[Rfam]
RNA: Small nucleolar RNA SNORA5
RNA sequence: UGCAGUCUAGUCAAAUUCAGCCCCUGUUCCCUUUGUAGCAGAGGCUGGCCCAGAUGACUGCCACAGCAAGCUCUGCAGCUCAUGGGCCCUGGGUCCCCUGCCUGGGACAUGGGGAUAAGUUUGGCUGUGAACAUGG
Numbered sequence: 001u002g003c004a005g006u007c008u009a010g011u012c013a014a015a016u017u018c019a020g021c022c023c024c025u026g027u028u029c030c031c032u033u034u035g036u037a038g039c040a041g042a043g044g045c046u047g048g049c050c051c052a053g054a055u056g057a058c059u060g061c062c063a064c065a066g067c068a069a070g071c072u073c074u075g076c077a078g079c080u081c082a083u084g085g086g087c088c089c090u091g092g093g094u095c096c097c098c099u100g101c102c103u104g105g106g107a108c109a110u111g112g113g114g115a116u117a118a119g120u121u122u123g124g125c126u127g128u129g130a131a132c133a134u135g136g
Stems, first nucleotide, its partner, number of pairs: 002061004018047005024041005075128006087114005